[Rfam]
RNA sequence: GGAGUAAGCACAAUCCUGACUCGUAUAAUGCCGGGGAUACGGCCCGGAAGUUUCUACCUGGAAACCUUAAAUUUCCGGACUACGGGAGACAUACGGCUGAAG
Numbered sequence: 001g002g003a004g005u006a007a008g009c010a011c012a013a014u015c016c017u018g019a020c021u022c023g024u025a026u027a028a029u030g031c032c033g034g035g036g037a038u039a040c041g042g043c044c045c046g047g048a049a050g051u052u053u054c055u056a057c058c059u060g061g062a063a064a065c066c067u068u069a070a071a072u073u074u075c076c077g078g079a080c081u082a083c084g085g086g087a088g089a090c091a092u093a094c095g096g097c098u099g100a101a102g
Stems, first nucleotide, its partner, number of pairs: 020086006029049001031047005058078007
Description: Purine riboswitch aptamer: a 102-nucleotide RNA sequence from Paenibacillus polymyxa. It scores 75 bits against the family's covariance model.